[Rfam]
RNA sequence: AAGUAUCUCCGAAUCCCGCCACAGAUGGCGGUGAUAGGAGUAACGGCUGGUUGGCACAGCCAUCGACGUACUUGUUCGAUUCAGAGAGCGGAUGCUUCACACCGCGAGAACAGACCACGUCGUAAACCACAAGAUCCCACCGGCGGUCGGGAAUCCUCGCCCUUCAGGCCGGGGA
Number, nucleotide and partner (000 for none) at each position: 001a000002a000003g044004u043005a000006u000007c040008u039009c038010c037011g000012a000013a035014u034015c033016c031017c030018g029019c028020c027021a026022c000023a000024g000025a000026u021027g020028g019029c018030g017031g016032u000033g015034a014035u013036a000037g010038g009039a008040g007041u000042a000043a004044c003045g061046g060047c059048u058049g057050g000051u000052u000053g000054g000055c000056a000057c049058a048059g047060c046061c045062a000063u000064c122065g121066a120067c119068g118069u117070a000071c000072u113073u112074g111075u110076u109077c108078g000079a000080u000081u000082c000083a000084g000085a000086g000087a000088g000089c000090g103091g102092a000093u000094g000095c000096u000097u000098c000099a000100c000101a000102c091103c090104g000105c000106g000107a000108g077109a076110a075111c074112a073113g072114a000115c000116c000117a069118c068119g067120u066121c065122g064123u000124a000125a000126a000127c000128c000129a000130c000131a000132a000133g000134a000135u152136c151137c150138c149139a000140c000141c146142g000143g000144c000145g000146g141147u000148c000149g138150g137151g136152a135153a000154u175155c174156c173157u172158c171159g170160c000161c168162c167163u000164u000165c000166a000167g162168g161169c000170c159171g158172g157173g156174g155175a154
RNA: Sense overlapping transcript RNA 0042 (sot)
Organism: Halogeometricum sp. CBA1124